[Rfam]
RNA: Mammalian CPEB3 ribozyme
Nucleotides: 076
Base pairs, nucleotide, nucleotide: 013044014043015042016041017040020076021075022074023073024072025071026070027039028038029037049066050065051064052063053062054061055060
Number, partner (000 for none) and nucleotide at each position: 001000a002000g003000a004000c005000u006000u007000u008000a009000a010000u011000u012000a013044g014043g015042g016041u017040c018000a019000u020076u021075g022074u023073a024072g025071a026070a027039g028038c029037g030000u031000g032000c033000u034000c035000g036000u037029u038028g039027c040017g041016a042015c043014c044013c045000c046000u047000g048000c049066c050065a051064g052063c053062c054061c055060u056000u057000u058000u059000c060055a061054g062053g063052g064051c065050u066049g067000c068000a069000a070026u071025u072024c073023u074022a075021c076020a